[Rfam]
RNA sequence: UUCUUAUCAAGAGAGGUGGAGGGACUGGCCCUUUGAAGCCUCGGCAGCGGACUUUUAUAGUACUGUGCCAAUUCCAGAGCAAUCAUGCUUGAGAUAAGAG
Numbered sequence: 001u002u003c004u005u006a007u008c009a010a011g012a013g014a015g016g017u018g019g020a021g022g023g024a025c026u027g028g029c030c031c032u033u034u035g036a037a038g039c040c041u042c043g044g045c046a047g048c049g050g051a052c053u054u055u056u057a058u059a060g061u062a063c064u065g066u067g068c069c070a071a072u073u074c075c076a077g078a079g080c081a082a083u084c085a086u087g088c089u090u091g092a093g094a095u096a097a098g099a100g
Base pairs, nucleotide, nucleotide: 001100002099003098004097005096006095007094008093013042014041015040016039017038021031022030023029025077026076027075028074043069044068045067046066048065049064051061052060053059073092078089079088080087081086
This 100-nucleotide RNA belongs to the Rfam family "SAM riboswitch aptamer (S box leader)". The base pairs follow the family's consensus structure, which is taken from published work.